[Rfam]
RNA sequence: AAACGCUCACCAGCUCCAUGCUAGUCGAGAACAAGUUGGUGUGGCGUUUCUACGAGCGGAAAGCGACGUGUUGUCAAAAACAGUUGACAUCUUCCUUCAAUGGGUUGUCGACCACCUGUGGCUUCACACACUU
Numbered sequence: 001a002a003a004c005g006c007u008c009a010c011c012a013g014c015u016c017c018a019u020g021c022u023a024g025u026c027g028a029g030a031a032c033a034a035g036u037u038g039g040u041g042u043g044g045c046g047u048u049u050c051u052a053c054g055a056g057c058g059g060a061a062a063g064c065g066a067c068g069u070g071u072u073g074u075c076a077a078a079a080a081c082a083g084u085u086g087a088c089a090u091c092u093u094c095c096u097u098c099a100a101u102g103g104g105u106u107g108u109c110g111a112c113c114a115c116c117u118g119u120g121g122c123u124u125c126a127c128a129c130a131c132u133u
Stems, first nucleotide, its partner, number of pairs: 004058005012048003016044006026035001083112004088107002092104003
Nematode snoRNA ceN36-1: a 133-nucleotide RNA from Caenorhabditis bovis. Pairs were carried over by alignment from the consensus structure, which was predicted with RNAalifold. Taxonomically the source falls in Caenorhabditis (Eukaryota, Bilateria, Rhabditida, Peloderinae). A reference for the family is Jia et al. (2007), "Systematic identification of non-coding RNA 2,2,7-trimethylguanosine cap structures in Caenorhabditis elegans", BMC Mol Biol. Gene Ontology terms of the family: RNA processing and nucleolus.